[Rfam]
RNA sequence: UCUGAGCAAACCUUUGAUGCCGUAAGGCGUUGAGCAC
Numbered sequence: 001u002c003u004g005a006g007c008a009a010a011c012c013u014u015u016g017a018u019g020c021c022g023u024a025a026g027g028c029g030u031u032g033a034g035c036a037c
Stems, first nucleotide, its partner, number of pairs: 016031006

This 37-nucleotide RNA sequence from Nostoc sp. ATCC 43529 belongs to the Rfam family "CRISPR RNA direct repeat element".
It scores 45 bits against the family's covariance model.
Its family is annotated with defense response in the Gene Ontology.